Shown here is a 90-nucleotide sequence from Hydrogenophaga sp. IBVHS2, a member of the family "SAH (S-adenosyl-L-homocysteine) riboswitch aptamer". Pairs were carried over by alignment from the consensus structure, which is taken from published work.

[Rfam]
RNA sequence: GCUUCCGAGGAGCGUUGCAGCGUUCCCCCCAUGCAGCAGCAUGGCGCGGGGCGUGAGGCUCGGACUGUUCUGCAACGACGCUCAUCCACU
Numbered sequence: 001g002c003u004u005c006c007g008a009g010g011a012g013c014g015u016u017g018c019a020g021c022g023u024u025c026c027c028c029c030c031a032u033g034c035a036g037c038a039g040c041a042u043g044g045c046g047c048g049g050g051g052c053g054u055g056a057g058g059c060u061c062g063g064a065c066u067g068u069u070c071u072g073c074a075a076c077g078a079c080g081c082u083c084a085u086c087c088a089c090u
Stems, first nucleotide, its partner, number of pairs: 004064005021053006

The literature on the family includes a 2008 paper in Mol Cell by Wang et al., "Riboswitches that sense S-adenosylhomocysteine and activate genes involved in coenzyme recycling".